[Rfam]
RNA: Turnip crinkle virus (TCV) core promoter hairpin (Pr)
RNA sequence: ACAGCCUCCCUCCUCGGACGGGGGGCCUGC
Numbered sequence: 001a002c003a004g005c006c007u008c009c010c011u012c013c014u015c016g017g018a019c020g021g022g023g024g025g026c027c028u029g030c
Stems, first nucleotide, its partner, number of pairs: 005025006011018002